[Rfam]
RNA: Actino-pnp RNA
Organism: Cellulomonas cellasea
RNA sequence: UCCGGUCCUCGGUAGUGGCGUCCGGAGCCCCGCUCCGGGUACCUCGAUCGAAGACCGCC
Number, nucleotide and partner (000 for none) at each position: 001u000002c000003c057004g056005g055006u054007c053008c000009u051010c050011g049012g048013u047014a000015g000016u000017g043018g042019c000020g040021u039022c038023c037024g036025g035026a034027g033028c032029c000030c000031c000032g028033c027034u026035c025036c024037g023038g022039g021040u020041a000042c018043c017044u000045c000046g000047a013048u012049c011050g010051a009052a000053g007054a006055c005056c004057g003058c000059c000